[Rfam]
RNA sequence: CAUCGGCACCUUUCACUACGGAUCGUCUGGCACGUACCUGCCAGUGAAGGGAUAGCAGCAU
Numbered sequence: 001c002a003u004c005g006g007c008a009c010c011u012u013u014c015a016c017u018a019c020g021g022a023u024c025g026u027c028u029g030g031c032a033c034g035u036a037c038c039u040g041c042c043a044g045u046g047a048a049g050g051g052a053u054a055g056c057a058g059c060a061u
Stems, first nucleotide, its partner, number of pairs: 009051007027044006
RNA: msiK RNA
Organism: Actinomyces slackii